Overview
The family of this 117-nucleotide RNA from Cupriavidus agavae is "ALIL pseudoknot". The source organism's lineage runs through Bacteria, Pseudomonadati, Pseudomonadota, Burkholderiaceae and Cupriavidus. Its family is annotated with positive regulation of translational frameshifting in the Gene Ontology. The literature on the family includes a 2008 paper in J Biol Chem by Mazauric et al., "Apical loop-internal loop RNA pseudoknots: a new type of stimulator of -1 translational frameshifting in bacteria".
RNA sequence: CGCGUUUUUCGCCCAGGCGGAGAUCGACCGCCGUUUGAAGUCCUGAAGGCCUUUGUCGAUCUGCAUUGCGACGCCUUCGGGGUCGAGCCGAUCUGCAAAGUCUUGCAGAUUGCUCCG
Numbered sequence: 001c002g003c004g005u006u007u008u009u010c011g012c013c014c015a016g017g018c019g020g021a022g023a024u025c026g027a028c029c030g031c032c033g034u035u036u037g038a039a040g041u042c043c044u045g046a047a048g049g050c051c052u053u054u055g056u057c058g059a060u061c062u063g064c065a066u067u068g069c070g071a072c073g074c075c076u077u078c079g080g081g082g083u084c085g086a087g088c089c090g091a092u093c094u095g096c097a098a099a100g101u102c103u104u105g106c107a108g109a110u111u112g113c114u115c116c117g
Stems, first nucleotide, its partner, number of pairs: 016032005078117005089112002092109007